[Rfam]
RNA sequence: AGUUGUCGAAAAGCGCCAGGACUGCGGUGUGAACGAAGACUCCGCAGUUGACGAGGUGGAGGAGUAUCGAAAAGAUCGGCGGAUACCUCCCGGCUUUGCGCCAGAGCCGAGGAAUCGCUGUUCAAACCGGUGAGGCGACUCAUCGAACAAAAACAGCGAUAUGGCGUGAA
Numbered sequence: 001a002g003u004u005g006u007c008g009a010a011a012a013g014c015g016c017c018a019g020g021a022c023u024g025c026g027g028u029g030u031g032a033a034c035g036a037a038g039a040c041u042c043c044g045c046a047g048u049u050g051a052c053g054a055g056g057u058g059g060a061g062g063a064g065u066a067u068c069g070a071a072a073a074g075a076u077c078g079g080c081g082g083a084u085a086c087c088u089c090c091c092g093g094c095u096u097u098g099c100g101c102c103a104g105a106g107c108c109g110a111g112g113a114a115u116c117g118c119u120g121u122u123c124a125a126a127c128c129g130g131u132g133a134g135g136c137g138a139c140u141c142a143u144c145g146a147a148c149a150a151a152a153a154c155a156g157c158g159a160u161a162u163g164g165c166g167u168g169a170a
Base pairs, nucleotide, nucleotide: 020049021048022047023046024045025044026043027042029040058090059089060088061087062086067079068078069077070076091109092108093107094106095105096104114160115159116158117157118156119155120154128145129144130143131142132141133140134139

Shown here is a 170-nucleotide RNA sequence from Thermoactinomyces daqus, a member of the family "glmS glucosamine-6-phosphate activated ribozyme aptamer". The base pairs follow the family's consensus structure, which is taken from published work. Taxonomically the source falls in Thermoactinomyces (Bacteria, Bacillota, Bacilli, Caryophanales).